[Rfam]
Rfam assigns this 76-nucleotide RNA from Acanthosepion pharaonis to the family "Mammalian CPEB3 ribozyme". The mammalian CPEB3 ribozyme is a self cleaving RNA located in the second intron of the CPEB3 gene which belongs to a family of genes regulating messenger RNA polyadenylation. Its family is annotated with RNA nuclease activity in the Gene Ontology. A search with the family's covariance model found it, with a score of 40 bits. The family's consensus secondary structure is taken from published work.
RNA sequence: ACAGAUAGGGGUCCACUGAAGUAGUGUUCACAUCAUGGUCCCUGUCAAAGAAGUUCUCUCAUUUGCCAAUCCCUCC
Numbered sequence: 001a002c003a004g005a006u007a008g009g010g011g012u013c014c015a016c017u018g019a020a021g022u023a024g025u026g027u028u029c030a031c032a033u034c035a036u037g038g039u040c041c042c043u044g045u046c047a048a049a050g051a052a053g054u055u056c057u058c059u060c061a062u063u064u065g066c067c068a069a070u071c072c073c074u075c076c
Base pairs, nucleotide, nucleotide: 009042010041011040013038014037018075019074021072023070024036025035026034046065047064048063049062052059